[Rfam]
RNA: Conserved CCUCCUCCC motif stress-induced RNA 1
Organism: Pseudorhodobacter sp. MZDSW-24AT
RNA sequence: GUUCUUUGCGAGGCCCCCUCCUCCUCCCUGGGGCCUGUAGCAAAAGCGUCGGCAUCUUUCUCCUCCCUGAUGCCGACGCCCCUU
Numbered sequence: 001g002u003u004c005u006u007u008g009c010g011a012g013g014c015c016c017c018c019u020c021c022u023c024c025u026c027c028c029u030g031g032g033g034c035c036u037g038u039a040g041c042a043a044a045a046g047c048g049u050c051g052g053c054a055u056c057u058u059u060c061u062c063c064u065c066c067c068u069g070a071u072g073c074c075g076a077c078g079c080c081c082c083u084u
Stems, first nucleotide, its partner, number of pairs: 007039003011036007047078010